[Rfam]
This 68-nucleotide RNA sequence belongs to the Rfam family "Fluoride riboswitch aptamer (crcB RNA motif)".
RNA sequence: CUUAGAAAAGGAGAUGGCUAUCCUCCUUCUACAAACCGCCAUUAUCGGCUGAUGAUACCUACGUUACC
Numbered sequence: 001c002u003u004a005g006a007a008a009a010g011g012a013g014a015u016g017g018c019u020a021u022c023c024u025c026c027u028u029c030u031a032c033a034a035a036c037c038g039c040c041a042u043u044a045u046c047g048g049c050u051g052a053u054g055a056u057a058c059c060u061a062c063g064u065u066a067c068c
Stems, first nucleotide, its partner, number of pairs: 010026004016059002021054001038049003

On this family, see Baker et al., Science 2012: "Widespread genetic switches and toxicity resistance proteins for fluoride". Rfam 15.1 lists 2,293 matches to the family in 1,982 species. It scores 45 bits against the family's covariance model.